[Rfam]
RNA sequence: AACUACCAGAAUCCCCGCGACUUCCGGGUUGUACAAAUAGAGGAAGUUAGUUAAGCUAAACACCGUGCCCUUUAACUCUUUCUGAAUGUCUGCCCGGAAGUCGCGGGGAUUC
Numbered sequence: 001a002a003c004u005a006c007c008a009g010a011a012u013c014c015c016c017g018c019g020a021c022u023u024c025c026g027g028g029u030u031g032u033a034c035a036a037a038u039a040g041a042g043g044a045a046g047u048u049a050g051u052u053a054a055g056c057u058a059a060a061c062a063c064c065g066u067g068c069c070c071u072u073u074a075a076c077u078c079u080u081u082c083u084g085a086a087u088g089u090c091u092g093c094c095c096g097g098a099a100g101u102c103g104c105g106g107g108g109a110u111u112c
Stems, first nucleotide, its partner, number of pairs: 009112003013108017041066001043064001046061001047059005